Rfam assigns this 59-nucleotide sequence from Allostreptomyces psammosilenae to the family "msiK RNA". Taxonomically the source falls in Allostreptomyces (Bacteria, Bacillati, Actinomycetes, Streptomycetaceae). Rfam 15.1 lists 1,374 matches to the family in 1,364 species.
RNA sequence: UCCCCCGGUUCCUUUACUCGGAUCGUCCGGCACGUUCCUGCCGGUGAAGGGAAGUACAC
Dot-bracket structure: .........(((((((..........((((((......)))))))))))))........